Rfam assigns this 73-nucleotide RNA sequence from Bos grunniens to the family "mir-483 microRNA precursor family". The base pairs follow the family's consensus structure, which was predicted with RNAalifold. Lineage of the source: Eukaryota > Euteleostomi > Mammalia > Bovinae > Bos. Rfam links the family to the GO terms RISC complex and miRNA-mediated post-transcriptional gene silencing. A search with the family's covariance model found it, with a score of 69 bits.

[Rfam]
RNA sequence: GGGGAGGGAGGCGGGAAGAAAGGAGGCGUGGUCUGUGCAGCUCCUCACUCCUCUCCUCCCGUCUUCUCCUUCU
Numbered sequence: 001g002g003g004g005a006g007g008g009a010g011g012c013g014g015g016a017a018g019a020a021a022g023g024a025g026g027c028g029u030g031g032u033c034u035g036u037g038c039a040g041c042u043c044c045u046c047a048c049u050c051c052u053c054u055c056c057u058c059c060c061g062u063c064u065u066c067u068c069c070u071u072c073u
Base pairs, nucleotide, nucleotide: 004069006067007066008065009064010063011062012061013060014059015058016057018055022053024052025051026050028048029047030046